Description
This 321-nucleotide sequence from Rotaria socialis belongs to the Rfam family "Nuclear RNase P". Rfam describes the family as follows. Ribonuclease P (RNase P) is a ubiquitous endoribonuclease, found in archaea, bacteria and eukarya as well as chloroplasts and mitochondria. Its best characterised activity is the generation of mature 5'-ends of tRNAs by cleaving the 5'-leader elements of precursor-tRNAs. Cellular RNase Ps are ribonucleoproteins. RNA from bacterial RNase Ps retains its catalytic activity in the absence of the protein subunit, i.e. it is a ribozyme. Isolated eukaryotic and archaeal RNase P RNA has not been shown to retain its catalytic function, but is still essential for the catalytic activity of the holoenzyme. Although the archaeal and eukaryotic holoenzyme s have a much greater protein content than the bacterial ones, the RNA cores from all the three lineages are homologous -- helices corresponding to P1, P2, P3, P4, and P10/11 are common to all cellular RNase P RNAs. Yet, there is considerable sequence variation, particularly among the eukaryotic RNAs. Rfam classes the family as a ribozyme. The organism belongs to Rotaria, within Eukaryota.
RNA sequence: GUGGGUUGAAGCUUACUUACAGGGAUUACAUACGAGUGCGAUCUAAUGUCACUCUUUCAUAUUUAUCCUUGGGAAGGUCUGAGAUAACGACCAAUCGAGACUCUAGCAGGGUUCCAUGCGGUUAACGUAUGGCAGGUGAUCAGAAAGCUUCCGGUGUGAAGUUUCUUUCUCAAUGGUAACAUUCGAGUACAAGAUCAACAUACGUUGAGAUGCUCUUAUCGUUGAAAAAGUUGUGAAAGCCUGUGGUCAGCAACAUGCAGUUAAAUAAGUGAGAUGAUCAUUUCGAUGAUCAAAACUCAAUUCAGACUACUCUCUGCCUAC
Numbered sequence: 001g002u003g004g005g006u007u008g009a010a011g012c013u014u015a016c017u018u019a020c021a022g023g024g025a026u027u028a029c030a031u032a033c034g035a036g037u038g039c040g041a042u043c044u045a046a047u048g049u050c051a052c053u054c055u056u057u058c059a060u061a062u063u064u065a066u067c068c069u070u071g072g073g074a075a076g077g078u079c080u081g082a083g084a085u086a087a088c089g090a091c092c093a094a095u096c097g098a099g100a101c102u103c104u105a106g107c108a109g110g111g112u113u114c115c116a117u118g119c120g121g122u123u124a125a126c127g128u129a130u131g132g133c134a135g136g137u138g139a140u141c142a143g144a145a146a147g148c149u150u151c152c153g154g155u156g157u158g159a160a161g162u163u164u165c166u167u168u169c170u171c172a173a174u175g176g177u178a179a180c181a182u183u184c185g186a187g188u189a190c191a192a193g194a195u196c197a198a199c200a201u202a203c204g205u206u207g208a209g210a211u212g213c214u215c216u217u218a219u220c221g222u223u224g225a226a227a228a229a230g231u232u233g234u235g236a237a238a239g240c241c242u243g244u245g246g247u248c249a250g251c252a253a254c255a256u257g258c259a260g261u262u263a264a265a266u267a268a269g270u271g272a273g274a275u276g277a278u279c280a281u282u283u284c285g286a287u288g289a290u291c292a293a294a295a296c297u298c299a300a301u302u303c304a305g306a307c308u309a310c311u312c313u314c315u316g317c318c319u320a321c
Stems, first nucleotide, its partner, number of pairs: 001321004008314002012273007021070005034054005039048001079305005089248004099113005115131006132244006148230003275292006